About this RNA:
The family of this 35-nucleotide RNA sequence from Rousettus aegyptiacus is "Iron response element I". It scores 35 bits against the family's covariance model. Taxonomically the source falls in Rousettus (Eukaryota, Opisthokonta, Dipnotetrapodomorpha, Pteropodidae). For this family Rfam cites "Ferritin L and H subunits are differentially regulated on a post-transcriptional level" (Sammarco et al., J Biol Chem, 2008). The family's consensus secondary structure is taken from published work. By type it is a cis-regulatory element. Its family is annotated with response to iron ion in the Gene Ontology.
RNA sequence: CUGUCUCUUACUUCAACAGUGUUUGAACAGAAAAG
Numbered sequence: 001c002u003g004u005c006u007c008u009u010a011c012u013u014c015a016a017c018a019g020u021g022u023u024u025g026a027a028c029a030g031a032a033a034a035g
Base pairs, nucleotide, nucleotide: 001035002034004032006031007030008029012027013026014025015024016023017021